[Rfam]
Background: The record is a 45-nucleotide sequence from Astyanax mexicanus, which matches "Histone 3' UTR stem-loop" in Rfam. The mRNAs of metazoan histone genes lack a poly-A tail. 3' end processing occurs at a site between a highly conserved stem-loop (modelled by this family) and a purine rich region around 20 nts downstream (the histone downstream element, or HDE). The source organism's lineage runs through Eukaryota, Vertebrata, Euteleostomi, Otophysi and Astyanax. The family's consensus secondary structure is taken from published work. On this family, see Williams and Marzluff, Nucleic Acids Res 1995: "The sequence of the stem and flanking sequences at the 3' end of histone mRNA are critical determinants for the binding of the stem-loop binding protein".

RNA sequence: ACAACGGCUCUUUUAAGAGCCACCCACAAAUCCACUGUUGUAGAA
Numbered sequence: 001a002c003a004a005c006g007g008c009u010c011u012u013u014u015a016a017g018a019g020c021c022a023c024c025c026a027c028a029a030a031u032c033c034a035c036u037g038u039u040g041u042a043g044a045a
Stems, first nucleotide, its partner, number of pairs: 006021006